[Rfam]
RNA: MIR396 microRNA precursor family
RNA sequence: CUUUCUAUUCUUCCACGGCUUUCUUGAACUGCAUGGGUUUUGAUCUACUCGAUCUUUGGUUUUAUAUCAAAUCUUUGCGGUUCAAUAAAGCUGUGGGAAGAUAGAGAGA
Number, nucleotide and partner (000 for none) at each position: 001c000002u000003u106004u105005c104006u103007a102008u000009u000010c000011u000012u000013c096014c095015a094016c000017g092018g091019c090020u089021u088022u087023c000024u085025u084026g083027a082028a000029c080030u079031g078032c077033a076034u000035g000036g000037g000038u000039u000040u000041u000042g000043a000044u000045c000046u000047a000048c000049u000050c000051g000052a000053u000054c000055u000056u000057u000058g000059g000060u000061u000062u000063u000064a000065u000066a000067u000068c000069a000070a000071a000072u000073c000074u000075u000076u033077g032078c031079g030080g029081u000082u027083c026084a025085a024086u000087a022088a021089a020090g019091c018092u017093g000094u015095g014096g013097g000098a000099a000100g000101a000102u007103a006104g005105a004106g003107a000108g000109a000